[Rfam]
RNA sequence: AGAGAGUGCCUUUCAGGCAUCCUCUCCCAAAACUUCCAUGGCCUGGUCGGAAACGACCGGGCCUUUUUUUGCCUUGC
Numbered sequence: 001a002g003a004g005a006g007u008g009c010c011u012u013u014c015a016g017g018c019a020u021c022c023u024c025u026c027c028c029a030a031a032a033c034u035u036c037c038a039u040g041g042c043c044u045g046g047u048c049g050g051a052a053a054c055g056a057c058c059g060g061g062c063c064u065u066u067u068u069u070u071g072c073c074u075u076g077c
Base pairs, nucleotide, nucleotide: 008018009017010016011015040063041062042061043060044059045058046057047056048055
RNA: Makes More Granules Regulator RNA (mmgR)